[Rfam]
RNA: MIR812 microRNA precursor family
RNA sequence: AAAAAGACAAACCCUAGGUUUCCAUGUCCAACGUUUGACUGUCCGUCUUAUAUGAAAUUUUUUUAUAAUUAGUAUUUUCAUUGUUAUUAGAUGAUAAAAUAUGAUUAAUACUUUAUGCGUGACUUGUUUUUUUAAUUUUUUUCAUAAUUUUUUUAAAUAAGAUGGACGGUCAAAUGUUGGACACGGAAAUCAGAGUUUAUC
Numbered sequence: 001a002a003a004a005a006g007a008c009a010a011a012c013c014c015u016a017g018g019u020u021u022c023c024a025u026g027u028c029c030a031a032c033g034u035u036u037g038a039c040u041g042u043c044c045g046u047c048u049u050a051u052a053u054g055a056a057a058u059u060u061u062u063u064u065a066u067a068a069u070u071a072g073u074a075u076u077u078u079c080a081u082u083g084u085u086a087u088u089a090g091a092u093g094a095u096a097a098a099a100u101a102u103g104a105u106u107a108a109u110a111c112u113u114u115a116u117g118c119g120u121g122a123c124u125u126g127u128u129u130u131u132u133u134a135a136u137u138u139u140u141u142u143c144a145u146a147a148u149u150u151u152u153u154u155a156a157a158u159a160a161g162a163u164g165g166a167c168g169g170u171c172a173a174a175u176g177u178u179g180g181a182c183a184c185g186g187a188a189a190u191c192a193g194a195g196u197u198u199a200u201c
Stems, first nucleotide, its partner, number of pairs: 027181006034174018